The record is a 74-nucleotide RNA sequence from Galemys pyrenaicus, which matches "Small nucleolar RNA SNORD113/SNORD114 family" in Rfam. The family has 59 seed sequences and 5,721 matches in Rfam 15.1. It is annotated as a C/D-box small nucleolar RNA. A search with the family's covariance model found it, with a score of 56 bits. The source organism's lineage runs through Eukaryota, Mammalia, Eulipotyphla, Talpidae and Galemys. From the family's description: The imprinted human domain at 14q32 contains two clusters of tandemly repeated small nucleolar RNAs named 14q(I) and 14q(II) snoRNAs. These two clusters are named SNORD113 and SNORD114 respectively in the HGNC approved gene symbol nomenclature.
RNA sequence: UGGGCCGAUGAUGAGAUUGGAGGGUGUCUGAAUCAAACAUUUUGAUUAAUGCCAUCUUUAACUCUGAGGUCCAG
Numbered sequence: 001u002g003g004g005c006c007g008a009u010g011a012u013g014a015g016a017u018u019g020g021a022g023g024g025u026g027u028c029u030g031a032a033u034c035a036a037a038c039a040u041u042u043u044g045a046u047u048a049a050u051g052c053c054a055u056c057u058u059u060a061a062c063u064c065u066g067a068g069g070u071c072c073a074g
Base pairs, nucleotide, nucleotide: 002072003071004070005069006068